[Rfam]
Nucleotides: 361
Stems, first nucleotide, its partner, number of pairs: 001357007020330008029321001032319001034317007044304005049065005054078002057075003113134002117132001119130003137174006144166007153189006192224004197219003207239001210236002241279009254268003259296007334350005
Number, partner (000 for none) and nucleotide at each position: 001357g002356g003355g004354g005353a006352c007351g008000u009000u010000c011000c012000g013000g014000a015000u016000u017000c018000g019000a020330c021329a022328g023327g024326g025325g026324c027323u028000g029321u030000u031000u032319g033000a034317g035316c036315a037314u038313u039312u040311u041000a042000a043000g044304c045303g046302u047301g048300u049065c050064g051063g052062a053061g054078g055077u056000u057075u058074c059073g060000g061053c062052u063051c064050c065049g066000u067000c068000a069000u070000a071000a072000a073059c074058g075057a076000u077055a078054c079000u080000c081000a082000g083000u084000u085000u086000a087000a088000u089000a090000a091000c092000u093000g094000g095000c096000a097000a098000a099000c100000a101000a102000a103000a104000c105000a106000a107000u108000u109000u110000c111000g112000c113134a114133g115000u116000a117132g118000c119130u120129g121128c122000c123000u124000a125000a126000g127000a128121g129120c130119a131000c132117u133114c134113u135000g136000c137174a138173u139172c140171a141170u142169c143000c144166c145165a146164u147163g148162g149161g150160c151000a152000u153189u154188c155187c156186u157185g158184c159000g160150g161149c162148c163147c164146a165145u166144g167000a168000c169142g170141a171140u172139g173138a174137u175000u176000c177000a178000a179000c180000c181000u182000u183000a184158g185157c186156g187155g188154g189153a190000u191000a192224c193223g194222c195221a196000c197219u198218g199217g200000g201000u202000c203000u204000g205000c206000c207239g208000u209000c210236u211235u212000a213000a214000g215000a216000c217199c218198c219197a220000a221195u222194g223193c224192g225000g226000a227000a228000a229000c230000c231000a232000a233000u234000a235211a236210g237000a238000c239207u240000a241279g242278c243277a244276u245275g246274g247273a248272u249271g250000u251000c252000a253000a254268g255267g256266u257000c258000u259296g260295u261294u262293c263292a264291u265290u266256a267255c268254c269000u270000u271249u272248a273247u274246c275245c276244a277243u278242g279241c280000g281000a282000a283000a284000u285000u286000g287000a288000a289000a290265a291264a292263u293262g294261a295260a296259c297000u298000a299000c300048a301047c302046a303045c304044g305000u306000a307000g308000a309000a310000a311040g312039a313038a314037a315036u316035g317034u318000g319032u320000c321029a322000a323027a324026g325025u326024c327023u328022c329021u330020g331000g332000a333000c334350g335349c336348g337347g338346g339000u340000u341000c342000a343000a344000c345000u346338c347337c348336c349335g350334c351007c352006g353005u354004c355003u356002c357001c358000a359000u360000a361000c